The family of this 133-nucleotide RNA from Gouania willdenowi is "Small nucleolar RNA SNORA70". The family has 43 seed sequences and 5,173 matches in Rfam 15.1. Taxonomically the source falls in Gouania (Eukaryota, Metazoa, Neoteleostei, Ovalentaria). It scores 89 bits against the family's covariance model. About the family: snoRNA U70 seems to be exclusive to mammals and is a member of the H/ACA class of snoRNA which contain H (ANANNA) and ACA box motifs. H/ACA box snoRNAs are involved in the conversion of uridines to pseudouridines (5-ribosyluracil) a constituent of structural RNAs (transfer, ribosomal, small nuclear, and small nucleolar).
RNA sequence: CUGCAGUGUAUUAAGCCGACUGGUUCUGCUAAUGUGUGGUUCUGGUGUGCAAAUGCUGCAAAUAGUGUCACUAUGGUUGUGUAUGUGCUCAGCUGGGUGGUGCUGAGUGCUUUAAGGGACCACAGGUACAACU
Numbered sequence: 001c002u003g004c005a006g007u008g009u010a011u012u013a014a015g016c017c018g019a020c021u022g023g024u025u026c027u028g029c030u031a032a033u034g035u036g037u038g039g040u041u042c043u044g045g046u047g048u049g050c051a052a053a054u055g056c057u058g059c060a061a062a063u064a065g066u067g068u069c070a071c072u073a074u075g076g077u078u079g080u081g082u083a084u085g086u087g088c089u090c091a092g093c094u095g096g097g098u099g100g101u102g103c104u105g106a107g108u109g110c111u112u113u114a115a116g117g118g119a120c121c122a123c124a125g126g127u128a129c130a131a132c133u
Stems, first nucleotide, its partner, number of pairs: 002051004019046004026039003075121003086109006